[Rfam]
RNA: 23S methyl RNA motif
RNA sequence: CGGUUGUUAGUAACUAUCGGUUCGCUGUUAGUUGCUAAGUAAUUGUACUUCAUUAACGUAGCUGUUCGCCGUGCCCACACCGAAUGGUUACGCUUUUUU
Numbered sequence: 001c002g003g004u005u006g007u008u009a010g011u012a013a014c015u016a017u018c019g020g021u022u023c024g025c026u027g028u029u030a031g032u033u034g035c036u037a038a039g040u041a042a043u044u045g046u047a048c049u050u051c052a053u054u055a056a057c058g059u060a061g062c063u064g065u066u067c068g069c070c071g072u073g074c075c076c077a078c079a080c081c082g083a084a085u086g087g088u089u090a091c092g093c094u095u096u097u098u099u
Base pairs, nucleotide, nucleotide: 002044003043004042005041006040007039008037009036010035011034012033013032014031015030016029018027019026055094057092058091059090060089061088062087063086064085065084066083067082068081071080072079073078
Dot-bracket structure: .(((((((((((((((.((......)).))))))))).))))))..........(.((((((((((((..(((....))))))))))))))).).....